[Rfam]
RNA sequence: AAAAGGAGCAAUAACGUCCUCUUGAUAGAACAAGAAUUUUGUUAUUGCUCCUUUACU
Numbered sequence: 001a002a003a004a005g006g007a008g009c010a011a012u013a014a015c016g017u018c019c020u021c022u023u024g025a026u027a028g029a030a031c032a033a034g035a036a037u038u039u040u041g042u043u044a045u046u047g048c049u050c051c052u053u054u055a056c057u
Base pairs, nucleotide, nucleotide: 002054003053004052005051006050007049008048009047010046011045012044013043014042015041020035021034022033023032024031
The record is a 57-nucleotide RNA sequence, which matches "Plastid-psbA-3 3UTR RNA" in Rfam. On this family, see Richter et al., Plant Commun 2023: "Retrograde signaling in plants: A critical review focusing on the GUN pathway and beyond". Rfam describes the family as follows. Plastid psbA-3 is a non-coding RNA (ncRNA) present in plastids. It was identified in inverted repeat sequences in the 3 prime untranslate region (3UTR) of photosystem II quinone-binding protein (psbA). It is annotated as a cis-regulatory element.